[Rfam]
RNA: DUF3800-IX RNA
Nucleotides: 065
Base pairs, nucleotide, nucleotide: 002060003059004058005057006056007055008054009053010052011051017034018033019031020030021029022028038047039046040045
Number, partner (000 for none) and nucleotide at each position: 001000a002060a003059u004058u005057g006056a007055a008054c009053u010052u011051c012000g013000a014000u015000u016000a017034g018033u019031c020030g021029c022028c023000u024000u025000c026000a027000u028022g029021g030020c031019g032000u033018g034017c035000g036000u037000g038047c039046c040045c041000g042000u043000a044000a045040g046039g047038g048000a049000u050000a051011g052010a053009a054008g055007u056006u057005c058004a059003a060002u061000c062000u063000c064000a065000a